The family of this 70-nucleotide sequence is "L13-Bacteroidia ribosomal protein leader".
For this family Rfam cites "Discovery of 20 novel ribosomal leader candidates in bacteria and archaea" (Eckert and Weinberg, BMC Microbiol, 2020).
RNA sequence: GGAUGCGAAAAGCGUCCUCUACAAGUGUGUAGAUAGCGUCCAUAUUGGCCUAUGGCGUGGUCUGUGAAUC
Numbered sequence: 001g002g003a004u005g006c007g008a009a010a011a012g013c014g015u016c017c018u019c020u021a022c023a024a025g026u027g028u029g030u031a032g033a034u035a036g037c038g039u040c041c042a043u044a045u046u047g048g049c050c051u052a053u054g055g056c057g058u059g060g061u062c063u064g065u066g067a068a069u070c
Stems, first nucleotide, its partner, number of pairs: 001017006030064005036058003040055005
Pairs were carried over by alignment from the consensus structure, which is taken from published work.